[Rfam]
Nucleotides: 065
Base pairs, nucleotide, nucleotide: 006058007057008056009055010054011053012052013051014049015048016047017046018045019044020043021042022041025040026039027038
Number, partner (000 for none) and nucleotide at each position: 001000c002000a003000a004000g005000g006058c007057a008056u009055c010054a011053a012052a013051g014049u015048g016047a017046u018045u019044g020043u021042g022041a023000u024000g025040u026039g027038u028000u029000u030000c031000a032000a033000c034000a035000a036000u037000c038027a039026u040025a041022u042021c043020a044019c045018a046017g047016u048015c049014a050000g051013c052012u053011u054010u055009g056008a057007u058006g059000a060000g061000c062000u063000u064000g065000a